The family of this 96-nucleotide sequence from Treponema maltophilum is "TD-2 RNA". A search with the family's covariance model found it, with a score of 59 bits. Clan: TD (Treponema denticola) motifs. The base pairs follow the family's consensus structure, which is taken from published work. The family's RNA type in Rfam is small RNA.
RNA sequence: GCCGCCACGGAGGGCGGAAAAGUUGUAUGACUUGCGAGUUUUUCGAAGAAAAACUCGGGUAUGAAAUUGCACAAGGAUGUGCAAUUUCAUACCGAC
Numbered sequence: 001g002c003c004g005c006c007a008c009g010g011a012g013g014g015c016g017g018a019a020a021a022g023u024u025g026u027a028u029g030a031c032u033u034g035c036g037a038g039u040u041u042u043u044c045g046a047a048g049a050a051a052a053a054c055u056c057g058g059g060u061a062u063g064a065a066a067u068u069g070c071a072c073a074a075g076g077a078u079g080u081g082c083a084a085u086u087u088c089a090u091a092c093c094g095a096c
Stems, first nucleotide, its partner, number of pairs: 002017005035057010059092014